[Rfam]
RNA: Small nucleolar RNA snoR2/U65
Organism: Nicotiana sylvestris
RNA sequence: GGUCCGAUGCCACGUCGACGGUAGCAAAAAUAAGCAAUGACCGACGAUGCUAUGAUUGGACCAAUAACAAGUUCGCAUUUUGAUAGGAAUCUGUGGAUGGAUUUUUCAUUCCUCACACGGAGCCGUUUUGUGCGAUUACAUGC
Numbered sequence: 001g002g003u004c005c006g007a008u009g010c011c012a013c014g015u016c017g018a019c020g021g022u023a024g025c026a027a028a029a030a031u032a033a034g035c036a037a038u039g040a041c042c043g044a045c046g047a048u049g050c051u052a053u054g055a056u057u058g059g060a061c062c063a064a065u066a067a068c069a070a071g072u073u074c075g076c077a078u079u080u081u082g083a084u085a086g087g088a089a090u091c092u093g094u095g096g097a098u099g100g101a102u103u104u105u106u107c108a109u110u111c112c113u114c115a116c117a118c119g120g121a122g123c124c125g126u127u128u129u130g131u132g133c134g135a136u137u138a139c140a141u142g143c
Base pairs, nucleotide, nucleotide: 002061003060004059005058006057007056008055009053013049014048015047016046017045020042021041022040024035025034073135074134075133076132077131086124087123091120092119093118095116096114097113099111